Record summary:
Burkholderia RNA 7 (anti-hemB): an 85-nucleotide RNA from Paludibacterium denitrificans. About the family: This RNA motif was identified by computational search in b-proteobacteria Burkholderia. Co-purified with Hfq, expression confirmed by Northern blot. A search with the family's covariance model found it, with a score of 57 bits. The family's RNA type in Rfam is small RNA.
[Rfam]
RNA sequence: CCUCCCGCUCGCCUCCCUGAGCGGGGGCCUUACGCUGACAUCUAAGGCUUUUGCCCCGGCGCAGUCAUUGCCGGGGCUUUUUGUU
Numbered sequence: 001c002c003u004c005c006c007g008c009u010c011g012c013c014u015c016c017c018u019g020a021g022c023g024g025g026g027g028c029c030u031u032a033c034g035c036u037g038a039c040a041u042c043u044a045a046g047g048c049u050u051u052u053g054c055c056c057c058g059g060c061g062c063a064g065u066c067a068u069u070g071c072c073g074g075g076g077c078u079u080u081u082u083g084u085u
Stems, first nucleotide, its partner, number of pairs: 004025006027048006054076008

Its family is annotated with protein binding and bacterial biofilm matrix in the Gene Ontology.